[Rfam]
The record is a 64-nucleotide RNA sequence from Chanos chanos, which matches "mir-7552 microRNA precursor family" in Rfam.

RNA sequence: UUACAAUUAAAGGAUAUUUCUUGCAAAUGAAUACAAAAACGGAAAUGUCCCUUAAUUGUUCGGC
Dot-bracket structure: ..((((((((.((((((((((...................)))))))))).)))))))).....

Rfam links the family to the GO terms RISC complex and miRNA-mediated post-transcriptional gene silencing.